[Rfam]
RNA: Small nucleolar RNA SNORA22
Nucleotides: 134
Stems, first nucleotide, its partner, number of pairs: 003055006010049001014045001016041003020037001022035001024033003057073001059071001062068001081118002083112003087107007
Number, partner (000 for none) and nucleotide at each position: 001000c002000u003055g004054c005053a006052c007051a008050g009000g010049g011000a012000a013000c014045a015000c016041c017040c018039a019000u020037g021000u022035g023000u024033g025032c026031u027000u028000u029000g030000u031026a032025g033024c034000u035022c036000c037020c038000u039018u040017g041016g042000u043000c044000a045014u046000u047000g048000a049010c050008c051007u052006g053005u054004g055003c056000c057073a058000c059071a060000g061000a062068a063000a064000u065000g066000u067000g068062u069000g070000g071059u072000c073057u074000g075000u076000a077000c078000c079000u080000c081118u082117g083112c084111a085110u086000u087107a088106g089105g090104a091103g092102a093101g094000c095000u096000g097000c098000u099000g100000u101093u102092u103091c104090u105089u106088c107087u108000a109000c110085a111084u112083g113000u114000a115000u116000u117082c118081a119000u120000c121000g122000g123000a124000c125000c126000g127000c128000c129000a130000c131000a132000a133000u134000u